[Rfam]
The record is a 131-nucleotide RNA sequence from Triticum aestivum, which matches "MIR827 microRNA precursor family" in Rfam.
RNA sequence: ACUUGUUUUGUUGGUUGUCAUCUAACCAUCGUUCGAUCUGCCACCUGGUGCAUGGUGGAUGCCUGGGUGCAUGGCGAUUGCGCCAACACGCAGACGGUGAUGAUGGUUAGAUGACCAUCAGCAAACAUGUU
Numbered sequence: 001a002c003u004u005g006u007u008u009u010g011u012u013g014g015u016u017g018u019c020a021u022c023u024a025a026c027c028a029u030c031g032u033u034c035g036a037u038c039u040g041c042c043a044c045c046u047g048g049u050g051c052a053u054g055g056u057g058g059a060u061g062c063c064u065g066g067g068u069g070c071a072u073g074g075c076g077a078u079u080g081c082g083c084c085a086a087c088a089c090g091c092a093g094a095c096g097g098u099g100a101u102g103a104u105g106g107u108u109a110g111a112u113g114a115c116c117a118u119c120a121g122c123a124a125a126c127a128u129g130u131u
Stems, first nucleotide, its partner, number of pairs: 005126004010122006017115017